[Rfam]
RNA sequence: UGGGCAGUAUCUUGUCGGAACUGCACCUUAUUUGUUAGGGAAAAUGUAUUUAGUAUCUGCCUUGAUCCAAAAUAACGGACUGGGACAGAGGG
Numbered sequence: 001u002g003g004g005c006a007g008u009a010u011c012u013u014g015u016c017g018g019a020a021c022u023g024c025a026c027c028u029u030a031u032u033u034g035u036u037a038g039g040g041a042a043a044a045u046g047u048a049u050u051u052a053g054u055a056u057c058u059g060c061c062u063u064g065a066u067c068c069a070a071a072a073u074a075a076c077g078g079a080c081u082g083g084g085a086c087a088g089a090g091g092g
Base pairs, nucleotide, nucleotide: 002027003026004024005023006022007021008020010019011018057088058087059086060084061083062082064080066079067078068077
This 92-nucleotide sequence from [Anoxybacillus] calidus belongs to the Rfam family "pan motif". NCBI's taxonomy places the organism under Bacteria, Bacillota, Caryophanales, Anoxybacillaceae, Paranoxybacillus. It scores 71 bits against the family's covariance model. Pairs were carried over by alignment from the consensus structure, which is taken from published work. Rfam classes the family as a cis-regulatory element.